[Rfam]
RNA sequence: AAAAAUAUGGGGGGCUUCUGCUGUGAGUGGCACAUGUAGAGCAGCUUCAUUGCUCUAGGUGCGGAAUUGACAUCAAGAGAUUUCGGGAGCAUAAUUUUUGGGUACUUGGGCAGCUGGUGAUCAUUGGUCCUGGCACAAGA
Numbered sequence: 001a002a003a004a005a006u007a008u009g010g011g012g013g014g015c016u017u018c019u020g021c022u023g024u025g026a027g028u029g030g031c032a033c034a035u036g037u038a039g040a041g042c043a044g045c046u047u048c049a050u051u052g053c054u055c056u057a058g059g060u061g062c063g064g065a066a067u068u069g070a071c072a073u074c075a076a077g078a079g080a081u082u083u084c085g086g087g088a089g090c091a092u093a094a095u096u097u098u099u100g101g102g103u104a105c106u107u108g109g110g111c112a113g114c115u116g117g118u119g120a121u122c123a124u125u126g127g128u129c130c131u132g133g134c135a136c137a138a139g140a
Stems, first nucleotide, its partner, number of pairs: 014090005019032005033061003037057008062085007110136001113134005119129004

The family of this 140-nucleotide RNA from Molossus molossus is "U11 spliceosomal RNA". A search with the family's covariance model found it, with a score of 92 bits.